[Rfam]
RNA: HNH endonuclease-associated RNA and ORF (HEARO) RNA
RNA sequence: GUCAGCGACCCCACAGGUGAACCUGGGGGCUUGCCCGAAACCGCCUCGUGCGGUCUGGGACAAGCCCCGAUGCUGACCAGCCCCCGUGGUGUUCGCACCGCGGAGCCGUUGUCUGGAGGUGCCUCCGUUCGGACCAUUCGGUGGCUUUUCCAGCCGUAUGCUCUUCAAUCCCGAUGUUAAACAGGUUGAUGGGGUGUCCAAAGCCAGUGUAUCGGGAAGAUGGCCGCCAGACACACAGGGGCGAGGAAAACUGUAC
Numbered sequence: 001g002u003c004a005g006c007g008a009c010c011c012c013a014c015a016g017g018u019g020a021a022c023c024u025g026g027g028g029g030c031u032u033g034c035c036c037g038a039a040a041c042c043g044c045c046u047c048g049u050g051c052g053g054u055c056u057g058g059g060a061c062a063a064g065c066c067c068c069g070a071u072g073c074u075g076a077c078c079a080g081c082c083c084c085c086g087u088g089g090u091g092u093u094c095g096c097a098c099c100g101c102g103g104a105g106c107c108g109u110u111g112u113c114u115g116g117a118g119g120u121g122c123c124u125c126c127g128u129u130c131g132g133a134c135c136a137u138u139c140g141g142u143g144g145c146u147u148u149u150c151c152a153g154c155c156g157u158a159u160g161c162u163c164u165u166c167a168a169u170c171c172c173g174a175u176g177u178u179a180a181a182c183a184g185g186u187u188g189a190u191g192g193g194g195u196g197u198c199c200a201a202a203g204c205c206a207g208u209g210u211a212u213c214g215g216g217a218a219g220a221u222g223g224c225c226g227c228c229a230g231a232c233a234c235a236c237a238g239g240g241g242c243g244a245g246g247a248a249a250a251c252u253g254u255a256c
Base pairs, nucleotide, nucleotide: 001077002076003075004074005073006072007071010029011028012026016023017022030064031063032062033061080242081241082240083239084238085102086101087100088099089098108236109235110233111232112231113230114229115228116227118225131166132165135160136159137158139156140155141154142153143252146250147249148248149247150246151245169217170216171215172214173213174212175211176210177209181208182207184205185204186203187202188199